[Rfam]
RNA sequence: UGGCAAUGAUGAUGACAAGAAUGGUUGUGUCUGGAGGGCUCCCUUGCUGCGUGGAGACACCAGUCCCUCUAAACUGACGUUGCCC
Numbered sequence: 001u002g003g004c005a006a007u008g009a010u011g012a013u014g015a016c017a018a019g020a021a022u023g024g025u026u027g028u029g030u031c032u033g034g035a036g037g038g039c040u041c042c043c044u045u046g047c048u049g050c051g052u053g054g055a056g057a058c059a060c061c062a063g064u065c066c067c068u069c070u071a072a073a074c075u076g077a078c079g080u081u082g083c084c085c
Stems, first nucleotide, its partner, number of pairs: 002084006
Shown here is an 85-nucleotide RNA from Brachypteracias leptosomus, a member of the family "Small nucleolar RNA SNORD127".
The family's consensus secondary structure was predicted with WAR.
For this family Rfam cites "snoSeeker: an advanced computational package for screening of guide and orphan snoRNA genes in the human genome" (Yang et al., Nucleic Acids Res, 2006).
By type it is a C/D-box small nucleolar RNA.
The family has 13 seed sequences and 541 matches in Rfam 15.1.
Taxonomically the source falls in Brachypteracias (Eukaryota, Teleostomi, Amniota, Telluraves).